[Rfam]
RNA sequence: CGGCUGUAGCUAUACUAAUUAUGUCUAAGAAGCUAACUGGCCGGUGGUUGUAUGAGAUUUCUUUGAGAUCUCUGUCGACAUAUCUGCUUACCGAGCUUCUCACAUUU
Number, nucleotide and partner (000 for none) at each position: 001c000002g000003g000004c000005u000006g000007u000008a000009g000010c000011u000012a000013u000014a000015c000016u000017a000018a000019u000020u000021a000022u000023g000024u000025c000026u000027a000028a100029g099030a098031a097032g096033c095034u094035a000036a000037c000038u000039g088040g087041c086042c000043g084044g083045u082046g081047g079048u078049u077050g076051u000052a000053u000054g000055a000056g000057a000058u000059u000060u000061c000062u000063u000064u000065g000066a000067g000068a000069u000070c000071u000072c000073u000074g000075u000076c050077g049078a048079c047080a000081u046082a045083u044084c043085u000086g041087c040088u039089u000090a000091c000092c000093g000094a034095g033096c032097u031098u030099c029100u028101c000102a000103c000104a000105u000106u000107u000
Shown here is a 107-nucleotide RNA from Hevea brasiliensis, a member of the family "Small nucleolar RNA snoR109". The organism belongs to Hevea, within Eukaryota. A search with the family's covariance model found it, with a score of 88 bits. The base pairs follow the family's consensus structure, which was predicted with WAR. For this family Rfam cites "Experimental RNomics: identification of 140 candidates for small non-messenger RNAs in the plant Arabidopsis thaliana" (Marker et al., Curr Biol, 2002).